[Rfam]
Nucleotides: 073
Base pairs, nucleotide, nucleotide: 012061013060014059015058016057017056018055020053021052022051023050024049025048026047027046028045029044030043
Number, partner (000 for none) and nucleotide at each position: 001000c002000a003000g004000a005000g006000c007000u008000u009000u010000g011000g012061a013060g014059u015058g016057u017056g018055a019000c020053a021052a022051u023050g024049g025048u026047g027046u028045u029044u030043g031000u032000u033000u034000c035000c036000u037000g038000a039000g040000u041000a042000u043030c044029a045028a046027a047026c048025a049024c050023c051022a052021u053020u054000a055018u056017c057016a058015c059014a060013c061012u062000a063000a064000a065000u066000a067000g068000c069000u070000c071000c072000a073000g
Background:
A member of the RNA family "mir-122 microRNA precursor family" from Gouania willdenowi, 73 nucleotides long. The family's consensus secondary structure was predicted with RNAalifold. It scores 90 bits against the family's covariance model. NCBI's taxonomy places the organism under Eukaryota, Teleostomi, Osteoglossocephalai, Gobiesocidae, Gouania.